[Rfam]
RNA: L31-Firmicutes ribosomal protein leader
RNA sequence: CUAUGGCUUGAAUUAGUCAUGGCGGAAGGAG
Numbered sequence: 001c002u003a004u005g006g007c008u009u010g011a012a013u014u015a016g017u018c019a020u021g022g023c024g025g026a027a028g029g030a031g
Stems, first nucleotide, its partner, number of pairs: 001022008